[Rfam]
RNA: Small nucleolar RNA SNORA77
RNA sequence: GCAGACUCAACUCUGUUUAAGUCUGACAAAUCCAGCCUUAGACUUUUUAUGUCUGCGACAGUAACGUUAUAAGAAGAACGUUAUAACCUGCCUUGCCAUUCACUUGGGAGGUGACCGUGUCUUCUCAGACAAAAUG
Dot-bracket structure: ((((((........(((((((.(((.......))).))))))).......))))))...........(...(((...((((...................................))))..))).).........
Numbered sequence: 001g002c003a004g005a006c007u008c009a010a011c012u013c014u015g016u017u018u019a020a021g022u023c024u025g026a027c028a029a030a031u032c033c034a035g036c037c038u039u040a041g042a043c044u045u046u047u048u049a050u051g052u053c054u055g056c057g058a059c060a061g062u063a064a065c066g067u068u069a070u071a072a073g074a075a076g077a078a079c080g081u082u083a084u085a086a087c088c089u090g091c092c093u094u095g096c097c098a099u100u101c102a103c104u105u106g107g108g109a110g111g112u113g114a115c116c117g118u119g120u121c122u123u124c125u126c127a128g129a130c131a132a133a134a135u136g
Stems, first nucleotide, its partner, number of pairs: 001056006015043007023035003068127001072125003078120004